This 137-nucleotide sequence from Geotrypetes seraphini belongs to the Rfam family "Small nucleolar RNA SNORA70". Rfam describes the family as follows. snoRNA U70 seems to be exclusive to mammals and is a member of the H/ACA class of snoRNA which contain H (ANANNA) and ACA box motifs. H/ACA box snoRNAs are involved in the conversion of uridines to pseudouridines (5-ribosyluracil) a constituent of structural RNAs (transfer, ribosomal, small nuclear, and small nucleolar). The base pairs follow the family's consensus structure, which was predicted with PFOLD. The organism belongs to Geotrypetes, within Eukaryota.

[Rfam]
RNA sequence: UUGCAGUCAAUUAAGCCGACCAGCUCCUUCUUUUCUAUUGGGAGGUGGUGUGCAAUGGCUGCAUACAGUAACAUUCCCUGGUUGUGUAAGUGCCCUGUCCUAUUUUCAGGGUGCUCUAAGGGAUCUCGGAGACAUUU
Numbered sequence: 001u002u003g004c005a006g007u008c009a010a011u012u013a014a015g016c017c018g019a020c021c022a023g024c025u026c027c028u029u030c031u032u033u034u035c036u037a038u039u040g041g042g043a044g045g046u047g048g049u050g051u052g053c054a055a056u057g058g059c060u061g062c063a064u065a066c067a068g069u070a071a072c073a074u075u076c077c078c079u080g081g082u083u084g085u086g087u088a089a090g091u092g093c094c095c096u097g098u099c100c101u102a103u104u105u106u107c108a109g110g111g112u113g114c115u116c117u118a119a120g121g122g123a124u125c126u127c128g129g130a131g132a133c134a135u136u137u
Base pairs, nucleotide, nucleotide: 002054003053004052005051019049020048021047022046025043026042027041028040080125081124082123091113092112093111094110095109096108

On this family, see Charette and Gray, IUBMB Life 2000: "Pseudouridine in RNA: what, where, how, and why".